[Rfam]
Rfam assigns this 124-nucleotide sequence from Cannabis sativa to the family "mir-172 microRNA precursor family". Its family is annotated with RISC complex and miRNA-mediated post-transcriptional gene silencing in the Gene Ontology. The organism belongs to Cannabis, within Eukaryota. The family has 11 seed sequences and 2,076 matches in Rfam 15.1. The match comes from Rfam's covariance-model search (71 bits). The literature on the family includes a 2002 paper in Curr Biol by Park et al., "CARPEL FACTORY, a Dicer homolog, and HEN1, a novel protein, act in microRNA metabolism in Arabidopsis thaliana". Rfam describes the family as follows. mir-172 has been experimentally verified in Arabidopsis thaliana. This family is thought to target mRNAs coding for APETALA2-like transcription factors. The mature sequence is excised from the 3' arm of the hairpin.
RNA sequence: AUAGUUGCUGAUGCAGCAUCAUCAAGAUUCUCAGGGGAUCAGAUAUACCGUCUUACUUAUUAGGUUUAUGAAAACACCAAUAUUGUCACUUUGUGAAUCUUGAUGAUGAUGCACCUGCAAAUAA
Numbered sequence: 001a002u003a004g005u006u007g008c009u010g011a012u013g014c015a016g017c018a019u020c021a022u023c024a025a026g027a028u029u030c031u032c033a034g035g036g037g038a039u040c041a042g043a044u045a046u047a048c049c050g051u052c053u054u055a056c057u058u059a060u061u062a063g064g065u066u067u068a069u070g071a072a073a074a075c076a077c078c079a080a081u082a083u084u085g086u087c088a089c090u091u092u093g094u095g096a097a098u099c100u101u102g103a104u105g106a107u108g109a110u111g112c113a114c115c116u117g118c119a120a121a122u123a124a
Stems, first nucleotide, its partner, number of pairs: 010115001012113004017108014032093005